Annotation
This 117-nucleotide RNA sequence from Bacillus taeanensis belongs to the Rfam family "TPP riboswitch aptamer (THI element)". The organism belongs to Bacillus, within Bacteria. On this family, see Rodionov et al., J Biol Chem 2002: "Comparative genomics of thiamin biosynthesis in procaryotes. New genes and regulatory mechanisms". Rfam links the family to the GO term thiamine pyrophosphate binding. Vitamin B(1) in its active form thiamin pyrophosphate (TPP) is an essential coenzyme that is synthesised by coupling of pyrimidine and thiazole moieties in bacteria.
RNA sequence: UAAGUCUACUAGGGGAGUUCUUAUGAGUGAGAGCUGAGAGAAAAGCGCAUUAAGGCUUUUCGACCCUUGGAACCUGAUCUGGAUCAUACCAGCGUAGGGAAGUAGAGGGAAGCUCGC
Numbered sequence: 001u002a003a004g005u006c007u008a009c010u011a012g013g014g015g016a017g018u019u020c021u022u023a024u025g026a027g028u029g030a031g032a033g034c035u036g037a038g039a040g041a042a043a044a045g046c047g048c049a050u051u052a053a054g055g056c057u058u059u060u061c062g063a064c065c066c067u068u069g070g071a072a073c074c075u076g077a078u079c080u081g082g083a084u085c086a087u088a089c090c091a092g093c094g095u096a097g098g099g100a101a102g103u104a105g106a107g108g109g110a111a112g113c114u115c116g117c
Base pairs, nucleotide, nucleotide: 006105007104008103009102010101011067012066013065014064017034018033019032020031021030041060042059043058044057045056073098074097075096076095079092080091081090082089